[Rfam]
RNA sequence: GGAAAACAAGGAUGGCGCUGGGGAGACGAGCCCCCCCAAGUCCUCCUCAGGCAAAUAGGCUCA
Numbered sequence: 001g002g003a004a005a006a007c008a009a010g011g012a013u014g015g016c017g018c019u020g021g022g023g024a025g026a027c028g029a030g031c032c033c034c035c036c037c038a039a040g041u042c043c044u045c046c047u048c049a050g051g052c053a054a055a056u057a058g059g060c061u062c063a
Base pairs, nucleotide, nucleotide: 014044015043017041018040019039021037022036023035028062029061030060031059032058
Shown here is a 63-nucleotide RNA from Callorhinus ursinus, a member of the family "Ma3 gene ribosomal frameshift signal". Its family is annotated with translational frameshifting in the Gene Ontology. On this family, see Wills et al., J Biol Chem 2006: "A functional -1 ribosomal frameshift signal in the human paraneoplastic Ma3 gene". The family has 12 seed sequences and 565 matches in Rfam 15.1.